[Rfam]
RNA sequence: CACCUCCUUUUCACUUUGCUAAUUGGUGAAAUGUCUUUAUUGAUUAUUUAAGUGGAGCAAAGAAAAUGUCCUUUGAAAGCUCAGGCAAAUUGAGUGUUUGUUUUGUAAGUUAGAGGAAACAAAU
Dot-bracket structure: ...............................(((.(...((((....))))...).))).........((((((.......(((((((((.....)))))))).)......)))))).......

Background:
A member of the RNA family "Small nucleolar RNA SNORA27" from Ictidomys tridecemlineatus, 124 nucleotides long. The base pairs follow the family's consensus structure. It is annotated as an H/ACA-box small nucleolar RNA. ACA27 is a member of the H/ACA class of snoRNA that guide the sites of modification of uridines to pseudouridines. Its Rfam clan is "SNORA27 clan". The organism belongs to Ictidomys, within Eukaryota.